RNA sequence: UCCUCUCUGGUGCAGUGGUUCUAGAUAGUUCAACAGUACAGCAUUCGUUUGUGAAAUGUUUAGGACCACUUGAUCAGAG
Numbered sequence: 001u002c003c004u005c006u007c008u009g010g011u012g013c014a015g016u017g018g019u020u021c022u023a024g025a026u027a028g029u030u031c032a033a034c035a036g037u038a039c040a041g042c043a044u045u046c047g048u049u050u051g052u053g054a055a056a057u058g059u060u061u062a063g064g065a066c067c068a069c070u071u072g073a074u075c076a077g078a079g
Stems, first nucleotide, its partner, number of pairs: 014070006021063002024060004029055004